[Rfam]
RNA sequence: CCCUUGCGUCCAGAGAAGGCCGAACUGGGCGUUAUAAGGAGG
Numbered sequence: 001c002c003c004u005u006g007c008g009u010c011c012a013g014a015g016a017a018g019g020c021c022g023a024a025c026u027g028g029g030c031g032u033u034a035u036a037a038g039g040a041g042g
Stems, first nucleotide, its partner, number of pairs: 001039002004036001006032008
Annotation
A member of the RNA family "Tick-borne Flavivirus short stem-loop SL6" from Rhodospirillum rubrum, 42 nucleotides long. The family's RNA type in Rfam is cis-regulatory element. For this family Rfam cites "Origin and evolution of 3'UTR of flaviviruses: long direct repeats as a basis for the formation of secondary structures and their significance for virus transmission" (Gritsun and Gould, Adv Virus Res, 2007). NCBI's taxonomy places the organism under Bacteria, Alphaproteobacteria, Rhodospirillales, Rhodospirillaceae, Rhodospirillum. Pairs were carried over by alignment from the consensus structure, which was predicted with LocARNA. Rfam's curators put it in the seed alignment.